[Rfam]
RNA sequence: GCUGGUUUAGCUCAGAAGGUAGAGCGCCUGCCUUGUAAGCAGGAUGUCAGCGGUUCGAUUCCGUCAACCAUCA
Numbered sequence: 001g002c003u004g005g006u007u008u009a010g011c012u013c014a015g016a017a018g019g020u021a022g023a024g025c026g027c028c029u030g031c032c033u034u035g036u037a038a039g040c041a042g043g044a045u046g047u048c049a050g051c052g053g054u055u056c057g058a059u060u061c062c063g064u065c066a067a068c069c070a071u072c073a
Stems, first nucleotide, its partner, number of pairs: 001072001003070005010025004027043005050064004
This 73-nucleotide RNA from Klebsiella phage KpF5 belongs to the Rfam family "tRNA". Taxonomically the source falls in Caudoviricetes (Viruses, Duplodnaviria, Heunggongvirae, Uroviricota). It scores 60 bits against the family's covariance model.